Bacteroidetes FopS (family of paralogous sRNAs): a 69-nucleotide sequence from Coprobacter secundus. The organism belongs to Coprobacter secundus, within Bacteria. The RNA-binding protein RbpB and BTncRNA_FopS sRNA are involved in the post-transcription regulation of polysaccharide utilisation loci (PUL). FopS sRNAs function as post-transcriptional repressors by binding to the vicinity of the start codon of the first mRNA of target PUL polycistrons, typically corresponding to the cognate SusC homolog, impeding translation of the respective glycan transporter.
RNA sequence: GUUUUUUCAUGGUAUUAGAUUUAAGGUUAAUAGAAGAUUGGUUGUCGUGAGACAACCAUUUUUUAUAUG
Numbered sequence: 001g002u003u004u005u006u007u008c009a010u011g012g013u014a015u016u017a018g019a020u021u022u023a024a025g026g027u028u029a030a031u032a033g034a035a036g037a038u039u040g041g042u043u044g045u046c047g048u049g050a051g052a053c054a055a056c057c058a059u060u061u062u063u064u065a066u067a068u069g
Stems, first nucleotide, its partner, number of pairs: 040057007

For this family Rfam cites "The global RNA-binding protein RbpB is a regulator of polysaccharide utilization in Bacteroides thetaiotaomicron" (Ruttiger et al., Nat Commun, 2025).